[Rfam]
RNA sequence: UCGACUGUACUUUACAGGAUCAUGUAUACAGUCAAUAUUCAGUUUCUUUGUUCACCAAACAAAGACACACAUUCCAGGCUGGAAGAUGACCGAUAGUGCGCUGUCCGUAAAGGGAGGUGUUUCCCUCACGCAUUCUGUGUGUGGGGGGUCGAUGAUCUUGCUUGUCACUUAUGCGCCACCUGUCUUGAGCUUACGGCUUGGGCGGGUUCUUGUAAGAGCGCGGCAUAGCAAGGACGGUUUGCACAUUCUGACAGCCC
Numbered sequence: 001u002c003g004a005c006u007g008u009a010c011u012u013u014a015c016a017g018g019a020u021c022a023u024g025u026a027u028a029c030a031g032u033c034a035a036u037a038u039u040c041a042g043u044u045u046c047u048u049u050g051u052u053c054a055c056c057a058a059a060c061a062a063a064g065a066c067a068c069a070c071a072u073u074c075c076a077g078g079c080u081g082g083a084a085g086a087u088g089a090c091c092g093a094u095a096g097u098g099c100g101c102u103g104u105c106c107g108u109a110a111a112g113g114g115a116g117g118u119g120u121u122u123c124c125c126u127c128a129c130g131c132a133u134u135c136u137g138u139g140u141g142u143g144g145g146g147g148g149u150c151g152a153u154g155a156u157c158u159u160g161c162u163u164g165u166c167a168c169u170u171a172u173g174c175g176c177c178a179c180c181u182g183u184c185u186u187g188a189g190c191u192u193a194c195g196g197c198u199u200g201g202g203c204g205g206g207u208u209c210u211u212g213u214a215a216g217a218g219c220g221c222g223g224c225a226u227a228g229c230a231a232g233g234a235c236g237g238u239u240u241g242c243a244c245a246u247u248c249u250g251a252c253a254g255c256c257c
Stems, first nucleotide, its partner, number of pairs: 003038001006034001009032003016027001018025001043067001045065007077256005096244005105237002110159004121147003125141001160229003164224003

ACEA small nucleolar RNA U3: a 257-nucleotide RNA sequence from Coemansia sp. RSA 990. Rfam's curators write: Small nucleolar RNAs (snoRNAs) are involved in the processing and modification of rRNA in the nucleolus. Its family is annotated with nucleolus and RNA processing in the Gene Ontology. A search with the family's covariance model found it, with a score of 57 bits. Lineage of the source: Eukaryota > Opisthokonta > Fungi > Kickxellales > Coemansia.